[Rfam]
RNA sequence: AAGGAGCAAUAGGCUCUUUCUUGUUCUAUCAAGAGGGCGUUAUUGCUCCUUUAUUU
Numbered sequence: 001a002a003g004g005a006g007c008a009a010u011a012g013g014c015u016c017u018u019u020c021u022u023g024u025u026c027u028a029u030c031a032a033g034a035g036g037g038c039g040u041u042a043u044u045g046c047u048c049c050u051u052u053a054u055u056u
Stems, first nucleotide, its partner, number of pairs: 001051012014037003019034005
RNA: Plastid-psbA-2 3UTR RNA